[Rfam]
Record summary: Small Cajal body specific RNA 16: a 182-nucleotide RNA from Tupaia belangeri. The base pairs follow the family's consensus structure, which was predicted with RNAfold. Its family is annotated with nucleolus and RNA processing in the Gene Ontology. scaRNAs are a specific class of small nuclear RNAs which localise to the Cajal bodies and guide the modification of RNA polymerase II transcribed spliceosomal RNAs U1, U2, U4, U5 and U12. A search with the family's covariance model found it, with a score of 179 bits.
RNA sequence: ACGGUCUGGGAAAAGGCUUCUGUGUGGUUGCCCCUGCCCUGCUGUGGGUGCAGCCCUGUACCAGGCAGCCCGACCUCGACCUAGAGUAAGCCCCCGGGCCAGCGCCGGGUGUUGAACUUGCAGUAACAGGUGUGAACAUUCUAGCAGCCGUUUGAUGGUCAUGUAUGAUACUGCAAACAGGC
Numbered sequence: 001a002c003g004g005u006c007u008g009g010g011a012a013a014a015g016g017c018u019u020c021u022g023u024g025u026g027g028u029u030g031c032c033c034c035u036g037c038c039c040u041g042c043u044g045u046g047g048g049u050g051c052a053g054c055c056c057u058g059u060a061c062c063a064g065g066c067a068g069c070c071c072g073a074c075c076u077c078g079a080c081c082u083a084g085a086g087u088a089a090g091c092c093c094c095c096g097g098g099c100c101a102g103c104g105c106c107g108g109g110u111g112u113u114g115a116a117c118u119u120g121c122a123g124u125a126a127c128a129g130g131u132g133u134g135a136a137c138a139u140u141c142u143a144g145c146a147g148c149c150g151u152u153u154g155a156u157g158g159u160c161a162u163g164u165a166u167g168a169u170a171c172u173g174c175a176a177a178c179a180g181g182c
Stems, first nucleotide, its partner, number of pairs: 003081004008076003015070004019065004024061002026055005033048002093109003096105001098103001118176008127167002133161003137157004143152003